[Rfam]
mir-452 microRNA precursor family: an 80-nucleotide sequence from Sus scrofa. The base pairs follow the family's consensus structure, which was predicted with RNAalifold. Gene Ontology terms of the family: miRNA-mediated post-transcriptional gene silencing and RISC complex. The literature on the family includes a 2010 paper in Blood by Jima et al., "Deep sequencing of the small RNA transcriptome of normal and malignant human B cells identifies hundreds of novel microRNAs".

RNA sequence: AAGCACUUACAACUGUUUGCAGAGGAAACUGAGACUUUGUAACUACAUCUCAGUCUCAACUGCAAAGAAGUAAGUGCUUA
Numbered sequence: 001a002a003g004c005a006c007u008u009a010c011a012a013c014u015g016u017u018u019g020c021a022g023a024g025g026a027a028a029c030u031g032a033g034a035c036u037u038u039g040u041a042a043c044u045a046c047a048u049c050u051c052a053g054u055c056u057c058a059a060c061u062g063c064a065a066a067g068a069a070g071u072a073a074g075u076g077c078u079u080a
Stems, first nucleotide, its partner, number of pairs: 001079010014068001016066007025057002028054007038047003